Background:
Shown here is a 146-nucleotide RNA from Camelus dromedarius, a member of the family "Small nucleolar RNA SNORA79". For this family Rfam cites "A computational screen for mammalian pseudouridylation guide H/ACA RNAs" (Schattner et al., RNA, 2006). It scores 86 bits against the family's covariance model. From the family's description: ACA65 (SNORA79) is a member of the H/ACA class of snoRNAs that guide the sites of modification of uridines to pseudouridines. This snoRNA was identified by computational screening and its expression in mouse experimentally verified by Northern blot and primer extension analysis. Its family is annotated with nucleolus and RNA processing in the Gene Ontology. The base pairs follow the family's consensus structure, which was predicted with RNAalifold. Taxonomically the source falls in Camelus (Eukaryota, Eumetazoa, Teleostomi, Tylopoda).
RNA sequence: UGAUGGCUGUUCGUCUCACUACUUGUAACCCUAGGUAGUGGGAUUUUAGUCCAUCACACAGCAAGCAGAUCUGUUUUCACUCAGAGCACCAUGCGGACAGCUUGCCUGUCUGAUAGUGACUUCUGAUUUUUGCAGGUCGAACAAUU
Numbered sequence: 001u002g003a004u005g006g007c008u009g010u011u012c013g014u015c016u017c018a019c020u021a022c023u024u025g026u027a028a029c030c031c032u033a034g035g036u037a038g039u040g041g042g043a044u045u046u047u048a049g050u051c052c053a054u055c056a057c058a059c060a061g062c063a064a065g066c067a068g069a070u071c072u073g074u075u076u077u078c079a080c081u082c083a084g085a086g087c088a089c090c091a092u093g094c095g096g097a098c099a100g101c102u103u104g105c106c107u108g109u110c111u112g113a114u115a116g117u118g119a120c121u122u123c124u125g126a127u128u129u130u131u132g133c134a135g136g137u138c139g140a141a142c143a144a145u146u
Base pairs, nucleotide, nucleotide: 001056002055003054004053005052006051008049014043015042016041017040018039020037021036022035023034068138069137070136071135072134081126082125083124084123085122087118088117089116095111096110097109098108099107